[Rfam]
RNA: Lysine riboswitch aptamer
Nucleotides: 176
Stems, first nucleotide, its partner, number of pairs: 007170005016078005022072003032063008082115004086110007116142011144161007
Number, partner (000 for none) and nucleotide at each position: 001000a002000u003000c004000u005000g006000a007170g008169a009168u010167a011166g012000a013000g014000g015000c016078g017077c018076g019075a020074a021000c022072u023071u024070u025000a026000a027000u028000a029000g030000u031000a032063a033062a034061a035060c036059u037058g038057u039056g040000g041000a042000g043000c044000u045000a046000a047000g048000c049000a050000c051000g052000a053000u054000g055000a056039u057038g058037c059036a060035g061034u062033u063032u064000g065000a066000a067000a068000g069000g070024a071023a072022a073000u074020u075019u076018c077017g078016c079000c080000g081000a082115a083114g084113u085112a086110u087109g088108c089107a090106a091105c092104u093000a094000a095000u096000c097000g098000c099000u100000u101000u102000a103000a104092g105091g106090u107089u108088g109087u110086a111000c112085u113084a114083c115082u116142g117141g118140u119139u120138u121137u122136a123135c124134a125133u126132a127000g128000a129000a130000u131000a132126u133125a134124u135123g136122u137121a138120a139119g140118a141117c142116u143000g144161u145160c146159a147158c148157a149156a150155a151000c152000u153000u154000a155150u156149u157148u158147g159146u160145g161144g162000a163000g164000a165000g166011c167010u168009a169008u170007u171000a172000u173000u174000c175000u176000u